[Rfam]
RNA sequence: ACGCUCAUUUACGCGGCGUUAAGCUUUCCGGCCUAUUACUCGACUGUCCAAGUUUUGGACGCUGAGUGGCUCCUGUCCACUCUGCUUUGACGCCUCCCUGUUAUCAACUUCAAAGCCGCCGGCAACGGCGGCUCUUUUUUG
Number, nucleotide and partner (000 for none) at each position: 001a000002c042003g041004c000005u000006c013007a000008u000009u000010u000011a000012c000013g006014c000015g037016g036017c000018g000019u000020u035021a034022a000023g032024c031025u030026u000027u000028c000029c000030g025031g024032c023033c000034u021035a020036u016037u015038a000039c000040u000041c003042g002043a000044c000045u000046g060047u059048c058049c057050a000051a000052g000053u000054u000055u000056u000057g049058g048059a047060c046061g000062c000063u000064g082065a081066g080067u079068g078069g077070c000071u000072c000073c000074u000075g000076u000077c069078c068079a067080c066081u065082c064083u000084g000085c000086u000087u000088u000089g102090a101091c100092g099093c000094c000095u000096c000097c000098c000099u092100g091101u090102u089103a000104u000105c000106a000107a000108c000109u000110u000111c000112a135113a000114a133115g132116c131117c130118g129119c128120c127121g126122g000123c000124a000125a000126c121127g120128g119129c118130g117131g116132c115133u114134c000135u112136u000137u000138u000139u000140u000141g000
RNA: Alphaproteobacterial sRNA BjrC1505
Organism: Rhodopseudomonas faecalis